mir-8517 microRNA precursor family: a 105-nucleotide RNA from Plutella xylostella. Its family is annotated with RISC complex and miRNA-mediated post-transcriptional gene silencing in the Gene Ontology.

RNA sequence: AAAUUGCAAACGGCUAUUGAACUGUUUUGUUACUCUCAUUCAGAGAAAAUUUUGUUCUUUGACAGAGAGUGACAAAACAGUUCAAUAGCUAAAGCGUCCAGUAAC
Dot-bracket structure: ..((((....((((((((((((((((((((((.............((.(...).))...)))))))..........))))))))))))))...)....))))...
The match comes from Rfam's covariance-model search (78 bits).